The record is a 78-nucleotide sequence from Apolygus lucorum, which matches "mir-263 microRNA precursor family" in Rfam.
It scores 58 bits against the family's covariance model.
Taxonomically the source falls in Apolygus (Eukaryota, Metazoa, Hemiptera, Cimicoidea).

RNA sequence: GGUUUGUGGGUCUUGGCACUGGAAGAAUUCACAGACAGUUUACGAUCGUGGUUCUCCUGGUGCCAAAGUCUGCAUUUA
Numbered sequence: 001g002g003u004u005u006g007u008g009g010g011u012c013u014u015g016g017c018a019c020u021g022g023a024a025g026a027a028u029u030c031a032c033a034g035a036c037a038g039u040u041u042a043c044g045a046u047c048g049u050g051g052u053u054c055u056c057c058u059g060g061u062g063c064c065a066a067a068g069u070c071u072g073c074a075u076u077u078a
Stems, first nucleotide, its partner, number of pairs: 005074006013066006020059003023055001025054003029051004034046001